Shown here is a 48-nucleotide sequence from Actinospica acidithermotolerans, a member of the family "L31-Actinobacteria ribosomal protein leader". By type it is a cis-regulatory leader. Taxonomically the source falls in Actinospica (Bacteria, Bacillati, Actinomycetota, Actinomycetes). The literature on the family includes a 2020 paper in BMC Microbiol by Eckert and Weinberg, "Discovery of 20 novel ribosomal leader candidates in bacteria and archaea".
[Rfam]
RNA sequence: UCGGUCCGGUUCACGCCCCGCGAUCCUCGCGGAGGCGACCCGGCGGCC
Number, nucleotide and partner (000 for none) at each position: 001u000002c000003g048004g047005u046006c043007c042008g041009g040010u000011u000012c000013a000014c037015g036016c035017c034018c032019c031020g030021c029022g000023a000024u000025c000026c000027u000028c000029g021030c020031g019032g018033a000034g017035g016036c015037g014038a000039c000040c009041c008042g007043g006044c000045g000046g005047c004048c003